RNA: c-di-AMP riboswitch aptamer (ydaO/yuaA leader)
RNA sequence: GUCGGUGAAGCGCCCCAGCUUCGCUGAGCCGGGGAACCAGCAGUCGGCCGCUCAAGCAAGGCCGGCGGGGUGAAUCGCGCGGUGCGCGCGUAGGGCGAUCCUUCCUUCCGCCCGAACCCGACAGCUAACCCGGUAGGCGGCCAAAGGAAGGAGCG
Numbered sequence: 001g002u003c004g005g006u007g008a009a010g011c012g013c014c015c016c017a018g019c020u021u022c023g024c025u026g027a028g029c030c031g032g033g034g035a036a037c038c039a040g041c042a043g044u045c046g047g048c049c050g051c052u053c054a055a056g057c058a059a060g061g062c063c064g065g066c067g068g069g070g071u072g073a074a075u076c077g078c079g080c081g082g083u084g085c086g087c088g089c090g091u092a093g094g095g096c097g098a099u100c101c102u103u104c105c106u107u108c109c110g111c112c113c114g115a116a117c118c119c120g121a122c123a124g125c126u127a128a129c130c131c132g133g134u135a136g137g138c139g140g141c142c143a144a145a146g147g148a149a150g151g152a153g154c155g
Stems, first nucleotide, its partner, number of pairs: 011139004019026001028134006038067001068119003076090004093113004